[Rfam]
RNA: Small nucleolar RNA R38
Organism: Nyctereutes procyonoides
RNA sequence: ACAAGCCUAUGAUGGUUUAGUUAUCCCUGUCUGAAAAUCUCGACUGAAGGGAAACCGUGAAUUCUGAGGCUUCA
Numbered sequence: 001a002c003a004a005g006c007c008u009a010u011g012a013u014g015g016u017u018u019a020g021u022u023a024u025c026c027c028u029g030u031c032u033g034a035a036a037a038u039c040u041c042g043a044c045u046g047a048a049g050g051g052a053a054a055c056c057g058u059g060a061a062u063u064c065u066g067a068g069g070c071u072u073c074a
Stems, first nucleotide, its partner, number of pairs: 003072005